[Rfam]
RNA: Metazoan signal recognition particle RNA
Organism: Drymodes brunneopygia
RNA sequence: UCCACGGUGGCGCAUGCCUGUAGUCCCAGCUGCCGGGGAGGCUGAGCACGACAGAUUGCUUGAACCCAGGAGUUCUGGGCUGCCGUGCGCUGUGCCGAGCGGCCGUCCAAGCUAAGGCCGCCAUCAAUAUGGUGACCAGCAGGGAGCUGCAGGACACCAGGUUGACUAAGGAGGAGUGAACUGGCCCAGGUUGGAGAUGGAGCAGGUCAAAGCUCCCGUGGCAGUCAGUAGCGGGAUCGCGCAUGUGAAUAGCCACUGCAGUGUAGCCUGGACAACACAGAAACACGCGGGCUCGA
Number, nucleotide and partner (000 for none) at each position: 001u041002c040003c016004a015005c000006g013007g000008u000009g000010g000011c000012g000013c006014a000015u004016g003017c000018c000019u000020g000021u000022a000023g000024u039025c038026c037027c000028a000029g000030c000031u000032g000033c000034c000035g000036g000037g026038g025039a024040g002041g001042c000043u000044g294045a293046g292047c291048a000049c289050g288051a000052c000053a000054g000055a000056u283057u282058g000059c280060u279061u000062g000063a000064a000065c000066c271067c270068a269069g268070g267071a000072g000073u000074u000075c266076u265077g264078g000079g262080c261081u260082g259083c258084c000085g256086u255087g254088c000089g253090c252091u251092g250093u249094g000095c247096c000097g000098a000099g246100c245101g244102g000103c000104c241105g240106u239107c235108c234109a000110a000111g232112c231113u230114a229115a000116g226117g225118c224119c000120g222121c221122c220123a219124u218125c164126a163127a162128u161129a000130u159131g158132g157133u156134g155135a000136c153137c152138a000139g150140c149141a148142g147143g000144g000145a000146g000147c142148u141149g140150c139151a000152g137153g136154a000155c134156a133157c132158c131159a130160g000161g128162u127163u126164g125165a000166c170167u000168a000169a000170g166171g000172a000173g216174g215175a214176g213177u212178g000179a000180a000181c000182u209183g208184g207185c206186c205187c000188a000189g000190g000191u200192u199193g198194g000195a000196g000197a000198u193199g192200g191201a000202g000203c000204a000205g186206g185207u184208c183209a182210a000211a000212g177213c176214u175215c174216c173217c000218g124219u123220g122221g121222c120223a000224g118225u117226c116227a000228g000229u114230a113231g112232c111233g000234g108235g107236a000237u000238c000239g106240c105241g104242c000243a000244u101245g100246u099247g095248a000249a093250u092251a091252g090253c089254c087255a086256c085257u000258g083259c082260a081261g080262u079263g000264u077265a076266g075267c070268c069269u068270g067271g066272a000273c000274a000275a000276c000277a000278c000279a060280g059281a000282a057283a056284c000285a000286c000287g000288c050289g049290g000291g047292c046293u045294c044295g000296a000